[Rfam]
The family of this 111-nucleotide sequence from Craterilacuibacter sinensis is "Glycine riboswitch aptamer".
Rfam's curators write: This family represents the bacterial glycine riboswitch.
Lineage of the source: Bacteria > Pseudomonadota > Betaproteobacteria > Neisseriales > Craterilacuibacter.
RNA sequence: CCCACCGACUCUGGAGAGCGAUGCCCGAUGCGGCAUCCACCGAAGGGGCUAACGCAACGCGCUGAUGGCGUGCUUGCGGAAAAUCUCAGGUGACCGGACAGAGGGGUGUAG
Numbered sequence: 001c002c003c004a005c006c007g008a009c010u011c012u013g014g015a016g017a018g019c020g021a022u023g024c025c026c027g028a029u030g031c032g033g034c035a036u037c038c039a040c041c042g043a044a045g046g047g048g049c050u051a052a053c054g055c056a057a058c059g060c061g062c063u064g065a066u067g068g069c070g071u072g073c074u075u076g077c078g079g080a081a082a083a084u085c086u087c088a089g090g091u092g093a094c095c096g097g098a099c100a101g102a103g104g105g106g107u108g109u110a111g
Stems, first nucleotide, its partner, number of pairs: 006106001009103005020037004039091003042087002046085002053078005